[Rfam]
RNA sequence: AAAGCACUGGAAUGUGCGAGCUCUUUCAUUUUUUUGACCGACUAUAUUUGUAUUGCAUAGGGGUUCAUGAGACAUUCGGUAGCGUAAUACCUCGAACGAAAGUAGGGGAAGCUGAUGCGAAGCGAGAACACCCACCUGGCGUUUUAGCGGGUUCAAUACACGGAAGAGCAUACGGCAUUCAAUCAGUGUUUUU
Numbered sequence: 001a002a003a004g005c006a007c008u009g010g011a012a013u014g015u016g017c018g019a020g021c022u023c024u025u026u027c028a029u030u031u032u033u034u035u036g037a038c039c040g041a042c043u044a045u046a047u048u049u050g051u052a053u054u055g056c057a058u059a060g061g062g063g064u065u066c067a068u069g070a071g072a073c074a075u076u077c078g079g080u081a082g083c084g085u086a087a088u089a090c091c092u093c094g095a096a097c098g099a100a101a102g103u104a105g106g107g108g109a110a111g112c113u114g115a116u117g118c119g120a121a122g123c124g125a126g127a128a129c130a131c132c133c134a135c136c137u138g139g140c141g142u143u144u145u146a147g148c149g150g151g152u153u154c155a156a157u158a159c160a161c162g163g164a165a166g167a168g169c170a171u172a173c174g175g176c177a178u179u180c181a182a183u184c185a186g187u188g189u190u191u192u193u
Stems, first nucleotide, its partner, number of pairs: 002191009012178004017174002031158001035155003038151002060133003063129004068124001075121003079118002090108004

A member of the RNA family "6S / SsrS RNA" from Lactococcus lactis, 193 nucleotides long.
Rfam classes the family as a non-coding RNA gene.
NCBI's taxonomy places the organism under Bacteria, Bacillota, Lactobacillales, Lactococcus lactis, Lactococcus lactis subsp. lactis.
Rfam describes the family as follows. E. coli 6S RNA was the first non coding RNA to be sequenced, but its function was unknown until recently. It consists of 184 nucleotides that fold into an extended hairpin structure with a large single-stranded internal bulge. The 6S RNA specifically associates with RNA polymerase holoenzyme containing the sigma70 specificity factor.
The sequence is in the family's curated seed alignment.